A member of the RNA family "Glycine riboswitch aptamer" from Nitrospirillum viridazoti, 107 nucleotides long.
RNA sequence: UGACAUCUCGCGGGAGAGACCGGCCCCCUGUGGGCUACCUGCUAGGACCGGCGCCGAAGGAGCAACCGCCCCCGGAAACUCUCAGGCAAAAGGACCGCGAGGAAGAA
Numbered sequence: 001u002g003a004c005a006u007c008u009c010g011c012g013g014g015a016g017a018g019a020c021c022g023g024c025c026c027c028c029u030g031u032g033g034g035c036u037a038c039c040u041g042c043u044a045g046g047a048c049c050g051g052c053g054c055c056g057a058a059g060g061a062g063c064a065a066c067c068g069c070c071c072c073c074g075g076a077a078a079c080u081c082u083c084a085g086g087c088a089a090a091a092g093g094a095c096c097g098c099g100a101g102g103a104a105g106a107a
Stems, first nucleotide, its partner, number of pairs: 006102008020051004053087003056083002060081003066074001